[Rfam]
RNA sequence: AAGGUGAGGGUGCUAUCUGUGACUGAGGGACAUGGCGCAUAGAACUGUCUCACACAGAAAUCGCACCCGUCACCUUGGCC
Numbered sequence: 001a002a003g004g005u006g007a008g009g010g011u012g013c014u015a016u017c018u019g020u021g022a023c024u025g026a027g028g029g030a031c032a033u034g035g036c037g038c039a040u041a042g043a044a045c046u047g048u049c050u051c052a053c054a055c056a057g058a059a060a061u062c063g064c065a066c067c068c069g070u071c072a073c074c075u076u077g078g079c080c
Stems, first nucleotide, its partner, number of pairs: 001076004006071002008068006016058006024052005

Rfam assigns this 80-nucleotide RNA sequence from Sus scrofa to the family "mir-342 microRNA precursor family". The family's consensus secondary structure was predicted with RNAalifold. It is one of the family's seed sequences. For this family Rfam cites "New miRNAs cloned from neuroblastoma" (Afanasyeva et al., BMC Genomics, 2008). Taxonomically the source falls in Sus (Eukaryota, Gnathostomata, Amniota, Suidae).